Source information
The record is a 252-nucleotide RNA from Tetracentron sinense, which matches "RNase MRP" in Rfam. The source organism's lineage runs through Eukaryota, Euphyllophyta, Mesangiospermae, Trochodendraceae and Tetracentron. By type it is a ribozyme. The family's consensus secondary structure is taken from published work. The family is grouped with related families in Rfam's "RNaseP clan". It scores 77 bits against the family's covariance model.

[Rfam]
RNA sequence: UAGCCGCAGGACGAAGUGAGUGGGUUGAGACCAAGCAUUAGCUUGGAACAGGCCCAGGAAAGUCCCCGGGCCCCACGUCUGUAGAGAUACAGCCUCCGAAAGGAGUGAUCUUGAUCGUAGAAAUUUGAUCGCACUUGCGAUGGGCUGAGACACGUGUGGAGCCUUGGAAUUUCUACACAAGUAGUUGGUCGAUUACACAGUUAUUCACUUGGUCUAUAAGACAAACUGAACGGGGCUUACGAUCUUGCGGUU
Numbered sequence: 001u002a003g004c005c006g007c008a009g010g011a012c013g014a015a016g017u018g019a020g021u022g023g024g025u026u027g028a029g030a031c032c033a034a035g036c037a038u039u040a041g042c043u044u045g046g047a048a049c050a051g052g053c054c055c056a057g058g059a060a061a062g063u064c065c066c067c068g069g070g071c072c073c074c075a076c077g078u079c080u081g082u083a084g085a086g087a088u089a090c091a092g093c094c095u096c097c098g099a100a101a102g103g104a105g106u107g108a109u110c111u112u113g114a115u116c117g118u119a120g121a122a123a124u125u126u127g128a129u130c131g132c133a134c135u136u137g138c139g140a141u142g143g144g145c146u147g148a149g150a151c152a153c154g155u156g157u158g159g160a161g162c163c164u165u166g167g168a169a170u171u172u173c174u175a176c177a178c179a180a181g182u183a184g185u186u187g188g189u190c191g192a193u194u195a196c197a198c199a200g201u202u203a204u205u206c207a208c209u210u211g212g213u214c215u216a217u218a219a220g221a222c223a224a225a226c227u228g229a230a231c232g233g234g235g236c237u238u239a240c241g242a243u244c245u246u247g248c249g250g251u252u
Stems, first nucleotide, its partner, number of pairs: 002252010014210006022055004031046006060238003064235004080091004094105004110181002117176006135169002138166001142164004152157001212222004